[Rfam]
RNA: Fluoride riboswitch aptamer (crcB RNA motif)
Organism: Desulfurella amilsii
RNA sequence: AUAAUGGCAGGCUAUGAGGUUAGCCUUUAUACGCUCUUUUUUGAGCUGAUGACCUCUACUUUUUA
Dot-bracket structure: .........[[[[..((((((]]]].......((((......))))....)))))).........